[Rfam]
Description:
The family of this 99-nucleotide sequence from Levilactobacillus brevis is "azaaromatic riboswitch aptamer (yjdF RNA)". It is one of the family's seed sequences. Lineage of the source: Bacteria > Bacillota > Lactobacillaceae > Levilactobacillus > Levilactobacillus brevis.
RNA sequence: AGUGACAGAAUAAAAAACACGGUCUGGUUGGUAGUCCAGGCGCGGCUGAAAGCCGUCAGUAACCUGCCUCCUUGGUUGUCCCUAUUUUGUUAGUCAUUU
Numbered sequence: 001a002g003u004g005a006c007a008g009a010a011u012a013a014a015a016a017a018c019a020c021g022g023u024c025u026g027g028u029u030g031g032u033a034g035u036c037c038a039g040g041c042g043c044g045g046c047u048g049a050a051a052g053c054c055g056u057c058a059g060u061a062a063c064c065u066g067c068c069u070c071c072u073u074g075g076u077u078g079u080c081c082c083u084a085u086u087u088u089g090u091u092a093g094u095c096a097u098u099u
Base pairs, nucleotide, nucleotide: 003092004091005090006089007088008087009086010085022041023040024039025038026037027036042056043055044054045053046052047051066076067075068074